RNA sequence: CUGGAAAACUCUGGAGAACUCAUUCAGUUGGGUGCCGAAGGGGCAAGGCCUUGGCUAAAAUUGUUAAGGCUGAAUCUCUCAGGCAAACGGACGGAGAGCAUCGG
Numbered sequence: 001c002u003g004g005a006a007a008a009c010u011c012u013g014g015a016g017a018a019c020u021c022a023u024u025c026a027g028u029u030g031g032g033u034g035c036c037g038a039a040g041g042g043g044c045a046a047g048g049c050c051u052u053g054g055c056u057a058a059a060a061u062u063g064u065u066a067a068g069g070c071u072g073a074a075u076c077u078c079u080c081a082g083g084c085a086a087a088c089g090g091a092c093g094g095a096g097a098g099c100a101u102c103g104g
Stems, first nucleotide, its partner, number of pairs: 009096005019032004034084003037080002041078003047071009
RNA: Glycine riboswitch aptamer